This 203-nucleotide sequence from Populus alba belongs to the Rfam family "Plant small nucleolar RNA U3".
The base pairs follow the family's consensus structure, which is taken from published work.
Its family is annotated with RNA processing and nucleolus in the Gene Ontology.
A reference for the family is Zwieb (1997), "The uRNA database", Nucleic Acids Res.
RNA sequence: ACAACCAUACUUGAACAGGAUCUGUUCUAUAAGAUCGUACCUCUGUAUCCUUUAUCACUUAGGAGACAGGAACCUAAGCCUGGUUGAGGAACCAUGACCGCGUGAUCAUAGCGUGAGUGGCCCUCAUGAUCAUCAUGGCUGUAGAGGAUCGUUUCCUAGCUAUAGACUUGGCUGGGAAUGGUCAUGCGGUUGUCUGACAGGCC
Numbered sequence: 001a002c003a004a005c006c007a008u009a010c011u012u013g014a015a016c017a018g019g020a021u022c023u024g025u026u027c028u029a030u031a032a033g034a035u036c037g038u039a040c041c042u043c044u045g046u047a048u049c050c051u052u053u054a055u056c057a058c059u060u061a062g063g064a065g066a067c068a069g070g071a072a073c074c075u076a077a078g079c080c081u082g083g084u085u086g087a088g089g090a091a092c093c094a095u096g097a098c099c100g101c102g103u104g105a106u107c108a109u110a111g112c113g114u115g116a117g118u119g120g121c122c123c124u125c126a127u128g129a130u131c132a133u134c135a136u137g138g139c140u141g142u143a144g145a146g147g148a149u150c151g152u153u154u155c156c157u158a159g160c161u162a163u164a165g166a167c168u169u170g171g172c173u174g175g176g177a178a179u180g181g182u183c184a185u186g187c188g189g190u191u192g193u194c195u196g197a198c199a200g201g202c203c
Base pairs, nucleotide, nucleotide: 001038002037003035005033013027014026015025016024017023018022043069044068045067046066048064049063050062051061078202079201080200081199082198097190098189099188100187101186102185103184104183105182106181107180108179110153111152112151113150120142121141124138125137126136127135128134129133155176156175157174158173159172160171161170162169